[Rfam]
RNA sequence: CAGGCGGAAACCGAAAAGCCCUGAAAAGAGUAGGUA
Numbered sequence: 001c002a003g004g005c006g007g008a009a010a011c012c013g014a015a016a017a018g019c020c021c022u023g024a025a026a027a028g029a030g031u032a033g034g035u036a
Stems, first nucleotide, its partner, number of pairs: 003020003010035003

Rfam assigns this 36-nucleotide RNA sequence to the family "DUF805b RNA". The sequence is in the family's curated seed alignment. The family's consensus secondary structure is taken from published work. By type it is a cis-regulatory element.